[Rfam]
RNA: Salmonella enterica sRNA STnc310
RNA sequence: AUUGUGACAUGUUAAACAAAAACGCCCGACAGGUGUGCGCUGUCGGGCGUUUUUGACGGGG
Numbered sequence: 001a002u003u004g005u006g007a008c009a010u011g012u013u014a015a016a017c018a019a020a021a022a023c024g025c026c027c028g029a030c031a032g033g034u035g036u037g038c039g040c041u042g043u044c045g046g047g048c049g050u051u052u053u054u055g056a057c058g059g060g061g
Stems, first nucleotide, its partner, number of pairs: 002019004025047003029043004033038001